[Rfam]
The record is a 165-nucleotide RNA sequence from Moschus moschiferus, which matches "ODC internal ribosome entry site (IRES)" in Rfam.
A search with the family's covariance model found it, with a score of 86 bits.
Lineage of the source: Eukaryota > Euteleostomi > Sarcopterygii > Boreoeutheria > Moschus.
RNA sequence: AUUUCCACUGCUGCACAGAGAGCACACGCAUCUUCGGUGGACUUGGAAUUCCUGGAGAAUUGCCUUUGUGAAAAGUUGGCAUAAUCCCUUUAAAUUCCAUCUCUUAAGUUUUCUAUGUAAGUAUUUGUGAUUGUUGCAAGUUUAUCUUAGGAGUUACAAAGUAUU
Numbered sequence: 001a002u003u004u005c006c007a008c009u010g011c012u013g014c015a016c017a018g019a020g021a022g023c024a025c026a027c028g029c030a031u032c033u034u035c036g037g038u039g040g041a042c043u044u045g046g047a048a049u050u051c052c053u054g055g056a057g058a059a060u061u062g063c064c065u066u067u068g069u070g071a072a073a074a075g076u077u078g079g080c081a082u083a084a085u086c087c088c089u090u091u092a093a094a095u096u097c098c099a100u101c102u103c104u105u106a107a108g109u110u111u112u113c114u115a116u117g118u119a120a121g122u123a124u125u126u127g128u129g130a131u132u133g134u135u136g137c138a139a140g141u142u143u144a145u146c147u148u149a150g151g152a153g154u155u156a157c158a159a160a161g162u163a164u165u
Stems, first nucleotide, its partner, number of pairs: 006079001010076003016070001018067003022063003026060001039052003084164002087161001089159002095153004